[Rfam]
RNA sequence: UGUCUAAUAUCGCUUAAUUCUGGCUUAAUGCCAGGAGCGGGGGAACCAAUCGCGGAACAUUCGUAUGAAUGCCGCUGGGGUGAAUCUUUUCAGCUAAUAACUGGAAGGAUGGGCGACUCUCACGCCCUAAUCCGACAGCUAACCUCGUAAGCGUAUAGGGAGAGGCAAC
Numbered sequence: 001u002g003u004c005u006a007a008u009a010u011c012g013c014u015u016a017a018u019u020c021u022g023g024c025u026u027a028a029u030g031c032c033a034g035g036a037g038c039g040g041g042g043g044a045a046c047c048a049a050u051c052g053c054g055g056a057a058c059a060u061u062c063g064u065a066u067g068a069a070u071g072c073c074g075c076u077g078g079g080g081u082g083a084a085u086c087u088u089u090u091c092a093g094c095u096a097a098u099a100a101c102u103g104g105a106a107g108g109a110u111g112g113g114c115g116a117c118u119c120u121c122a123c124g125c126c127c128u129a130a131u132c133c134g135a136c137a138g139c140u141a142a143c144c145u146c147g148u149a150a151g152c153g154u155a156u157a158g159g160g161a162g163a164g165g166c167a168a169c
Stems, first nucleotide, its partner, number of pairs: 011153004018036007037148006047077002078133003086108008111127004

Overview
The record is a 169-nucleotide sequence from Paenibacillus pini, which matches "c-di-AMP riboswitch aptamer (ydaO/yuaA leader)" in Rfam. The source organism's lineage runs through Bacteria, Bacillati, Paenibacillaceae, Paenibacillus and Paenibacillus pini.